[Rfam]
RNA sequence: AAAUUCUAUCGGUCUGAUCUCGUGAUUGAGAGCGGAGGAACCAAUCUUUUGGGGCUAAUUCUGUACAAGAAGGGAUGAGAGACUUCUUCGCCAUCCUGCCCGUCAGCUAACUUCGUCGGCUAAAGCGAAGGAGGUC
Numbered sequence: 001a002a003a004u005u006c007u008a009u010c011g012g013u014c015u016g017a018u019c020u021c022g023u024g025a026u027u028g029a030g031a032g033c034g035g036a037g038g039a040a041c042c043a044a045u046c047u048u049u050u051g052g053g054g055c056u057a058a059u060u061c062u063g064u065a066c067a068a069g070a071a072g073g074g075a076u077g078a079g080a081g082a083c084u085u086c087u088u089c090g091c092c093a094u095c096c097u098g099c100c101c102g103u104c105a106g107c108u109a110a111c112u113u114c115g116u117c118g119g120c121u122a123a124a125g126c127g128a129a130g131g132a133g134g135u136c
Base pairs, nucleotide, nucleotide: 011121012120013119014118018031019030020029032116033115034114035113036112037111042051043050052101053100054099060070061069062068073096074095075094076093
Background
This 136-nucleotide RNA from Peribacillus faecalis belongs to the Rfam family "c-di-AMP riboswitch aptamer (ydaO/yuaA leader)". Taxonomically the source falls in Peribacillus (Bacteria, Bacillati, Bacilli, Bacillaceae). Pairs were carried over by alignment from the consensus structure. It scores 61 bits against the family's covariance model.